[Rfam]
RNA sequence: GGAUGAAAAUGAUGAGUAGAAUUGACGUGUGAUGGUGAAUUCCACUUGAUCGAUUUAAUGUAUUUCUCACUUCGCUACGUUCUUUCUGAUUCGUCC
Numbered sequence: 001g002g003a004u005g006a007a008a009a010u011g012a013u014g015a016g017u018a019g020a021a022u023u024g025a026c027g028u029g030u031g032a033u034g035g036u037g038a039a040u041u042c043c044a045c046u047u048g049a050u051c052g053a054u055u056u057a058a059u060g061u062a063u064u065u066c067u068c069a070c071u072u073c074g075c076u077a078c079g080u081u082c083u084u085u086c087u088g089a090u091u092c093g094u095c096c
Stems, first nucleotide, its partner, number of pairs: 004093004
RNA: Small nucleolar RNA R32/R81/Z41